[Rfam]
RNA sequence: GGGGAUCUUCGGAGCCCUAUAACCUCGGGUCGCCGCCUGCGACCCCUCAAGCUGACGGAAGACAGAGA
Numbered sequence: 001g002g003g004g005a006u007c008u009u010c011g012g013a014g015c016c017c018u019a020u021a022a023c024c025u026c027g028g029g030u031c032g033c034c035g036c037c038u039g040c041g042a043c044c045c046c047u048c049a050a051g052c053u054g055a056c057g058g059a060a061g062a063c064a065g066a067g068a
Stems, first nucleotide, its partner, number of pairs: 001018004006014001008012001027045007

Annotation: The record is a 68-nucleotide RNA sequence from Rhodobacter sp. CACIA14H1, which matches "L2-Alphaproteobacteria ribosomal protein leader" in Rfam. The family's RNA type in Rfam is cis-regulatory leader. A search with the family's covariance model found it, with a score of 54 bits. Pairs were carried over by alignment from the consensus structure, which is taken from published work.